[Rfam]
This 358-nucleotide part of an RNA from Methanococcus maripaludis belongs to the Rfam family "Archaeal small subunit ribosomal RNA". Lineage of the source: Archaea > Methanococci > Methanococcaceae > Methanococcus > Methanococcus maripaludis. The base pairs follow the family's consensus structure, which is taken from published work. Its Rfam clan is "SSU clan". Its family is annotated with ribosome and structural constituent of ribosome in the Gene Ontology.

RNA sequence: GGCCUAAAGCGUCCGUAGCCGGUCCAGUAAGUCCCUGUUUAAAUCCUGCGGCUUAACCGCAGGACUGGCAGGGAUACUGCUGGACUUGGGACCGGGAGAGGACAAGGGUACUUCAGGGGUAGCGGUGAAAUGUGUUGAUCCUUGAAGGACCACCUAUGGCGAAGGCACUUGUCUGGAACGGGUCCGACGGUGAGGGACGAAAGCCAGGGGCGCGAACCGGAUUAGAUACCCGGGUAGUCCUGGCCGUAAACUCUGCGAACUAGGUGUUAGGUGGGCCCCGUGCCCAUCUAGUGCCGAAGGGAAGCCGUUAAGUUCGCCGCCUGGGGAGUACGGUCGCAAGACUGAAACUUAAAGGAAU
Numbered sequence: 001g002g003c004c005u006a007a008a009g010c011g012u013c014c015g016u017a018g019c020c021g022g023u024c025c026a027g028u029a030a031g032u033c034c035c036u037g038u039u040u041a042a043a044u045c046c047u048g049c050g051g052c053u054u055a056a057c058c059g060c061a062g063g064a065c066u067g068g069c070a071g072g073g074a075u076a077c078u079g080c081u082g083g084a085c086u087u088g089g090g091a092c093c094g095g096g097a098g099a100g101g102a103c104a105a106g107g108g109u110a111c112u113u114c115a116g117g118g119g120u121a122g123c124g125g126u127g128a129a130a131u132g133u134g135u136u137g138a139u140c141c142u143u144g145a146a147g148g149a150c151c152a153c154c155u156a157u158g159g160c161g162a163a164g165g166c167a168c169u170u171g172u173c174u175g176g177a178a179c180g181g182g183u184c185c186g187a188c189g190g191u192g193a194g195g196g197a198c199g200a201a202a203g204c205c206a207g208g209g210g211c212g213c214g215a216a217c218c219g220g221a222u223u224a225g226a227u228a229c230c231c232g233g234g235u236a237g238u239c240c241u242g243g244c245c246g247u248a249a250a251c252u253c254u255g256c257g258a259a260c261u262a263g264g265u266g267u268u269a270g271g272u273g274g275g276c277c278c279c280g281u282g283c284c285c286a287u288c289u290a291g292u293g294c295c296g297a298a299g300g301g302a303a304g305c306c307g308u309u310a311a312g313u314u315c316g317c318c319g320c321c322u323g324g325g326g327a328g329u330a331c332g333g334u335c336g337c338a339a340g341a342c343u344g345a346a347a348c349u350u351a352a353a354g355g356a357a358u
Stems, first nucleotide, its partner, number of pairs: 001321003009318001011198004016192001018191003022085007030078002032074008045063007089185003092181003100174007107151002111147008122133003159166002203244006212238002217233004255317006263295014299306002323350003332343004